[Rfam]
Annotation:
The family of this 80-nucleotide RNA sequence from Phoenix dactylifera is "Small nucleolar RNA R16". The match comes from Rfam's covariance-model search (72 bits). The base pairs follow the family's consensus structure, which was predicted with PFOLD. NCBI's taxonomy places the organism under Eukaryota, Streptophyta, Tracheophyta, Spermatophyta, Phoenix.

RNA sequence: GAUGGCAAUUGAUGCAAUUAUUUAUCCUACACACUGAAGGGUUGUGUGGACUUAGUCUCCGCUUAUUAUCUGAUGCCAUA
Numbered sequence: 001g002a003u004g005g006c007a008a009u010u011g012a013u014g015c016a017a018u019u020a021u022u023u024a025u026c027c028u029a030c031a032c033a034c035u036g037a038a039g040g041g042u043u044g045u046g047u048g049g050a051c052u053u054a055g056u057c058u059c060c061g062c063u064u065a066u067u068a069u070c071u072g073a074u075g076c077c078a079u080a
Stems, first nucleotide, its partner, number of pairs: 003078005

Annotation
Gene Ontology terms of the family: nucleolus and RNA processing.